[Rfam]
RNA sequence: UCCACGUUUCUCCUCCCUGAGCGUGUCUUAACCUUGUUAAGAUUUUGGCCCCCACUUGUUGGGGGCUUUUUUUU
Numbered sequence: 001u002c003c004a005c006g007u008u009u010c011u012c013c014u015c016c017c018u019g020a021g022c023g024u025g026u027c028u029u030a031a032c033c034u035u036g037u038u039a040a041g042a043u044u045u046u047g048g049c050c051c052c053c054a055c056u057u058g059u060u061g062g063g064g065g066c067u068u069u070u071u072u073u074u
Stems, first nucleotide, its partner, number of pairs: 003025006026042007048066007
Record summary:
The family of this 74-nucleotide sequence from Gallionella capsiferriformans is "Burkholderia RNA 7 (anti-hemB)". Rfam describes the family as follows. This RNA motif was identified by computational search in b-proteobacteria Burkholderia. The family has 26 seed sequences and 479 matches in Rfam 15.1. The match comes from Rfam's covariance-model search (59 bits). Gene Ontology terms of the family: protein binding and bacterial biofilm matrix.